This 200-nucleotide sequence from Calorimonas adulescens belongs to the Rfam family "T-box leader". It is annotated as a cis-regulatory leader. A search with the family's covariance model found it, with a score of 105 bits. Gene Ontology term of the family: tRNA binding. NCBI's taxonomy places the organism under Bacteria, Bacillati, Thermoanaerobacterales, Thermoanaerobacteraceae, Calorimonas.

RNA sequence: AUAAAAGCGAUGAAGAGAAGAGUAACCCUGGGAGGCUUUAAAGAGAGAAGGUACCACCGGCUGAAAGUACCUUUAAGCGACAAACAGGGCGAAGACCAUCUCGAAGCUGUGGGCUGAAAUAUAGUAAGCCUCACCGGCAGAGCCGUUAUCUUAUUGAGAAGUAAUUAGGGUGGAACCACGAAGACCCCUUCGUCCCUGCA
Dot-bracket structure: ......((......((((.......(((((.....(((........((((((((............))))))))))).......))))).........))))...))..((((((...........)))).)).(((.....))).....................((((.......(((((......)))))))))...